[Rfam]
RNA sequence: AAUGAAGGAUGACAAAAUGUUUCGGUCCCAAAUGAUCGUACUGAUUAUACCGUUAUGUUUGGUUCUGACAUU
Numbered sequence: 001a002a003u004g005a006a007g008g009a010u011g012a013c014a015a016a017a018u019g020u021u022u023c024g025g026u027c028c029c030a031a032a033u034g035a036u037c038g039u040a041c042u043g044a045u046u047a048u049a050c051c052g053u054u055a056u057g058u059u060u061g062g063u064u065c066u067g068a069c070a071u072u
Base pairs, nucleotide, nucleotide: 001072002071003070004069
RNA: Small nucleolar RNA SNORD73